A member of the RNA family "mir-9/mir-79 microRNA precursor family" from Aquarana catesbeiana, 75 nucleotides long. Taxonomically the source falls in Aquarana (Eukaryota, Chordata, Craniata, Ranoidea). The family has 214 seed sequences and 5,647 matches in Rfam 15.1. The base pairs follow the family's consensus structure, which was predicted with RNAalifold. A reference for the family is Lagos-Quintana et al. (2001), "Identification of novel genes coding for small expressed RNAs", Science. Its family is annotated with miRNA-mediated post-transcriptional gene silencing and RISC complex in the Gene Ontology.

RNA sequence: CGGUUCAUACGUUCGGUUGUCUAGCUUUAUGAAAUUAGUAUACUCAUACAGCUAGGUAACCAAAGACAUAAACCG
Numbered sequence: 001c002g003g004u005u006c007a008u009a010c011g012u013u014c015g016g017u018u019g020u021c022u023a024g025c026u027u028u029a030u031g032a033a034a035u036u037a038g039u040a041u042a043c044u045c046a047u048a049c050a051g052c053u054a055g056g057u058a059a060c061c062a063a064a065g066a067c068a069u070a071a072a073c074c075g
Base pairs, nucleotide, nucleotide: 001075002074003073004072005071007069008068012064013063015061016060017059018058019057020056021055022054023053024052025051026050028048029047030046031045032044